[Rfam]
RNA: HNH endonuclease-associated RNA and ORF (HEARO) RNA
RNA sequence: GUCAACUACCCCUCCCUAACUGAAGCAAAUGCUUCAGUUGAGGAAGGAGCUUGUUUCCAUAAAGCAAGUUCCUGGUUGACCAGACCACUGGAUACCGGUUGAACAUGUCAAAGAAAAGUCCAGUAAACGAUACCGGAGAAUACAACAGUAGUCACCCUGGGAUGUCGCCUCAGUCCCUUGCUCUGAGAGUGCAGUUUAAAGAGUUCCGGCGGGGUAGGAACAGUGACUGUACUUUUAAACCUCCGGUAAUCCGGUCGAGAGGAAGUCGGA
Numbered sequence: 001g002u003c004a005a006c007u008a009c010c011c012c013u014c015c016c017u018a019a020c021u022g023a024a025g026c027a028a029a030u031g032c033u034u035c036a037g038u039u040g041a042g043g044a045a046g047g048a049g050c051u052u053g054u055u056u057c058c059a060u061a062a063a064g065c066a067a068g069u070u071c072c073u074g075g076u077u078g079a080c081c082a083g084a085c086c087a088c089u090g091g092a093u094a095c096c097g098g099u100u101g102a103a104c105a106u107g108u109c110a111a112a113g114a115a116a117a118g119u120c121c122a123g124u125a126a127a128c129g130a131u132a133c134c135g136g137a138g139a140a141u142a143c144a145a146c147a148g149u150a151g152u153c154a155c156c157c158u159g160g161g162a163u164g165u166c167g168c169c170u171c172a173g174u175c176c177c178u179u180g181c182u183c184u185g186a187g188a189g190u191g192c193a194g195u196u197u198a199a200a201g202a203g204u205u206c207c208g209g210c211g212g213g214g215u216a217g218g219a220a221c222a223g224u225g226a227c228u229g230u231a232c233u234u235u236u237a238a239a240c241c242u243c244c245g246g247u248a249a250u251c252c253g254g255u256c257g258a259g260a261g262g263a264a265g266u267c268g269g270a
Stems, first nucleotide, its partner, number of pairs: 001080008010049001012046002015043002050068007083256004087124007129251003132247007152186002156180001159177005164266002168262004188233009200224001203221005209215001